[Rfam]
RNA sequence: AUCUUCCGGUGCUCCUGUCGCAGAUGACUUUCGCCCUUCUCUACAACGACCCUUCGAAUCAAAUAUUUUGGAAGGUUUUUAGUGUGAUAAGUGCGAGUCAUCUGUGACAGGAUAAUGGAAGAU
Numbered sequence: 001a002u003c004u005u006c007c008g009g010u011g012c013u014c015c016u017g018u019c020g021c022a023g024a025u026g027a028c029u030u031u032c033g034c035c036c037u038u039c040u041c042u043a044c045a046a047c048g049a050c051c052c053u054u055c056g057a058a059u060c061a062a063a064u065a066u067u068u069u070g071g072a073a074g075g076u077u078u079u080u081a082g083u084g085u086g087a088u089a090a091g092u093g094c095g096a097g098u099c100a101u102c103u104g105u106g107a108c109a110g111g112a113u114a115a116u117g118g119a120a121g122a123u
Base pairs, nucleotide, nucleotide: 002122003121004120005119006118007117008116013112014111015110016109017108018107019106020105021104022103023102024101025100026099027098028097029096030095032093035091

The record is a 123-nucleotide sequence from Nicotiana sylvestris, which matches "MIR1919 microRNA precursor family" in Rfam. The family's consensus secondary structure was predicted with RNAalifold. The organism belongs to Nicotiana, within Eukaryota. Gene Ontology terms of the family: RISC complex and miRNA-mediated post-transcriptional gene silencing.